[Rfam]
RNA sequence: GCCGAGCUUGGUAACAAAAGCCUGUGACCCAAGUGGGGGCAUCUGGGUGAUUGGACUUUGGGCCAAUCCAACUAGCUGGGUGCUAAUUGCUUAAAUUUGGCUUGCCCAUUCCAAGUAGGGAGUCGGGUCUUGAGGCUUGGGCGAAGGCCUGGACUUCAUGGCUCUUAGAGUGGAGGGCACCGCGUCAGGCUGGUUUCACAGAGCAACGACAACCUCCCACUCUCGACAGUGGAAGGAUAACAAGUCGGUGCAAUCGGUGCCCAACAAAAGUUAGUUGGGUUAGUCUAAUUGAACGAUCACCCUU
Numbered sequence: 001g002c003c004g005a006g007c008u009u010g011g012u013a014a015c016a017a018a019a020g021c022c023u024g025u026g027a028c029c030c031a032a033g034u035g036g037g038g039g040c041a042u043c044u045g046g047g048u049g050a051u052u053g054g055a056c057u058u059u060g061g062g063c064c065a066a067u068c069c070a071a072c073u074a075g076c077u078g079g080g081u082g083c084u085a086a087u088u089g090c091u092u093a094a095a096u097u098u099g100g101c102u103u104g105c106c107c108a109u110u111c112c113a114a115g116u117a118g119g120g121a122g123u124c125g126g127g128u129c130u131u132g133a134g135g136c137u138u139g140g141g142c143g144a145a146g147g148c149c150u151g152g153a154c155u156u157c158a159u160g161g162c163u164c165u166u167a168g169a170g171u172g173g174a175g176g177g178c179a180c181c182g183c184g185u186c187a188g189g190c191u192g193g194u195u196u197c198a199c200a201g202a203g204c205a206a207c208g209a210c211a212a213c214c215u216c217c218c219a220c221u222c223u224c225g226a227c228a229g230u231g232g233a234a235g236g237a238u239a240a241c242a243a244g245u246c247g248g249u250g251c252a253a254u255c256g257g258u259g260c261c262c263a264a265c266a267a268a269a270g271u272u273a274g275u276u277g278g279g280u281u282a283g284u285c286u287a288a289u290u291g292a293a294c295g296a297u298c299a300c301c302c303u304u
Stems, first nucleotide, its partner, number of pairs: 001040003004023001006021004028037003045302009056291001058288006065281002068278010078262007087253003091250001097248008106236002109234005115227002118224006125164005131158005137152006165170001172217005183208003190201003

This 304-nucleotide RNA from Handroanthus impetiginosus belongs to the Rfam family "Plant signal recognition particle RNA".
The family's consensus secondary structure is taken from published work.
Rfam 15.1 lists 4,988 matches to the family in 266 species.